[Rfam]
RNA sequence: AUAUGAUACAGUGAGCAGGCGACGGCCGAAAUGAGAAUCGUCGCCGGGCUGCCGAAAGGCGGCAGCAGACUGUGUGACAGCACAUCUGCGGGACAGUU
Dot-bracket structure: .........(.((..(.((((((((............))))))))..(((((......))))).(((((...............)))))..).)).).

A member of the RNA family "NiCo (Nickel/Cobalt) riboswitch aptamer" from [Clostridium] symbiosum, 98 nucleotides long. Its family is annotated with metal ion homeostasis and cobalt ion binding in the Gene Ontology. Pairs were carried over by alignment from the consensus structure, which is taken from published work. The source organism's lineage runs through Bacteria, Bacillati, Bacillota, Lachnospirales and [Clostridium] symbiosum. On this family, see Furukawa et al., Mol Cell 2015: "Bacterial riboswitches cooperatively bind Ni(2+) or Co(2+) ions and control expression of heavy metal transporters". Clan: NiCo_riboswitches.